[Rfam]
RNA sequence: UUGCAUUCUUAAACCCUCUUGGUAGCUUCAGCCUGAUUGCUUCCAGGAUAUGAGUGAAUGCUAUAGGAAUUGCAGGGGAGUCCAAAGGGCUGCGCCUCUCCUAUGGCUCAGUCUUAUUUCAUACCUGCAACAUUGCCU
Number, nucleotide and partner (000 for none) at each position: 001u000002u000003g061004c060005a059006u058007u000008c054009u053010u052011a051012a000013a000014c000015c000016c000017u048018c047019u046020u045021g044022g043023u000024a041025g040026c039027u000028u000029c000030a000031g000032c000033c000034u000035g000036a000037u000038u000039g026040c025041u024042u000043c022044c021045a020046g019047g018048a017049u000050a000051u011052g010053a009054g008055u000056g000057a000058a006059u005060g004061c003062u000063a000064u000065a138066g137067g136068a000069a000070u130071u129072g128073c127074a126075g125076g124077g000078g000079a000080g000081u000082c000083c000084a000085a000086a115087g114088g113089g112090c111091u110092g109093c000094g107095c106096c000097u000098c000099u000100c000101c000102u000103a000104u000105g000106g095107c094108u000109c092110a091111g090112u089113c088114u087115u086116a000117u000118u000119u000120c000121a000122u000123a000124c076125c075126u074127g073128c072129a071130a070131c000132a000133u000134u000135g000136c067137c066138u065